[Rfam]
RNA sequence: UCGAAGCUCCAACAAAUGGAUAAGACUUGUUCUUAGUGUAUAGGAGUUUGUGAAAAUAGAAUAGAGAAAAUAAAGGAGCAAUAACCUCUUUCUUGUUUGAUCUUUGAUCAAGGGGGUUAUUGCUCCUUUAUU
Numbered sequence: 001u002c003g004a005a006g007c008u009c010c011a012a013c014a015a016a017u018g019g020a021u022a023a024g025a026c027u028u029g030u031u032c033u034u035a036g037u038g039u040a041u042a043g044g045a046g047u048u049u050g051u052g053a054a055a056a057u058a059g060a061a062u063a064g065a066g067a068a069a070a071u072a073a074a075g076g077a078g079c080a081a082u083a084a085c086c087u088c089u090u091u092c093u094u095g096u097u098u099g100a101u102c103u104u105u106g107a108u109c110a111a112g113g114g115g116g117u118u119a120u121u122g123c124u125c126c127u128u129u130a131u132u
Stems, first nucleotide, its partner, number of pairs: 008020003072129013086115003090111002094107001
Dot-bracket structure: .......(((.......)))...................................................(((((((((((((.(((.((..(............)..)).))).)))))))))))))...
RNA: Plastid-psbA-1 3UTR RNA
Organism: Digitalis lanata